[Rfam]
RNA sequence: CUCCCGCCUGUGUCCGGGUUAUGACACAGACCUCCCUGUUGGACUGCCCGGGCCUUGUGCCCGGGUUUUUUU
Dot-bracket structure: .......(((((((........)))))))................((((((((.....))))))))......
Numbered sequence: 001c002u003c004c005c006g007c008c009u010g011u012g013u014c015c016g017g018g019u020u021a022u023g024a025c026a027c028a029g030a031c032c033u034c035c036c037u038g039u040u041g042g043a044c045u046g047c048c049c050g051g052g053c054c055u056u057g058u059g060c061c062c063g064g065g066u067u068u069u070u071u072u
Stems, first nucleotide, its partner, number of pairs: 008029007046066008
A member of the RNA family "Singlet oxygen resistance RNA X" from Pseudooceanicola albus, 72 nucleotides long.
SorX (RSs2461)like SorY is a singlet oxygen induced sRNA that counteracts oxidative stress by targeting mRNA for a transporter in Rhodobacter.
The literature on the family includes a 2016 paper in RNA Biol by Peng et al., "Regulation of a polyamine transporter by the conserved 3' UTR-derived sRNA SorX confers resistance to singlet oxygen and organic hydroperoxides in Rhodobacter sphaeroides".